A member of the RNA family "ALIL pseudoknot" from Leucobacter exalbidus, 135 nucleotides long.
On this family, see Mazauric et al., J Biol Chem 2008: "Apical loop-internal loop RNA pseudoknots: a new type of stimulator of -1 translational frameshifting in bacteria".
By type it is a cis-regulatory element.
RNA sequence: CGCGUCUUUCUUCGGGGCGGAGCUCGACCGCCAAUACAAGAAUUAGUGGCCUUCAUCAACCGCAACAAAGACGAUGUUGUUGCUGGUCGCAGGCUCGGGGUCGAGCGCAUCUGCAGCGUGCUGCUGGUGGCCCCG
Numbered sequence: 001c002g003c004g005u006c007u008u009u010c011u012u013c014g015g016g017g018c019g020g021a022g023c024u025c026g027a028c029c030g031c032c033a034a035u036a037c038a039a040g041a042a043u044u045a046g047u048g049g050c051c052u053u054c055a056u057c058a059a060c061c062g063c064a065a066c067a068a069a070g071a072c073g074a075u076g077u078u079g080u081u082g083c084u085g086g087u088c089g090c091a092g093g094c095u096c097g098g099g100g101u102c103g104a105g106c107g108c109a110u111c112u113g114c115a116g117c118g119u120g121c122u123g124c125u126g127g128u129g130g131c132c133c134c135g
Base pairs, nucleotide, nucleotide: 016032017031018030019029020028096135097134098133099132100131108129110127111126113124114123115122116121